[Rfam]
RNA sequence: UCUUAAAUGCGUUAGGGGUUGCAGCGGCAUCCUUUUUUGCGACGCCUGUUUAUUAAUGGUUUAAACAGGGUUAUUGAGCAAAAAAGAUACAGCGGAAAACCCGACGCUUU
Numbered sequence: 001u002c003u004u005a006a007a008u009g010c011g012u013u014a015g016g017g018g019u020u021g022c023a024g025c026g027g028c029a030u031c032c033u034u035u036u037u038u039g040c041g042a043c044g045c046c047u048g049u050u051u052a053u054u055a056a057u058g059g060u061u062u063a064a065a066c067a068g069g070g071u072u073a074u075u076g077a078g079c080a081a082a083a084a085a086g087a088u089a090c091a092g093c094g095g096a097a098a099a100c101c102c103g104a105c106g107c108u109u110u
Stems, first nucleotide, its partner, number of pairs: 015102003019098002024093002029088003035083006
Source information
A member of the RNA family "Flavo-1 RNA" from Paucihalobacter ruber, 110 nucleotides long. NCBI's taxonomy places the organism under Bacteria, Pseudomonadati, Bacteroidota, Flavobacteriia, Paucihalobacter. A search with the family's covariance model found it, with a score of 42 bits.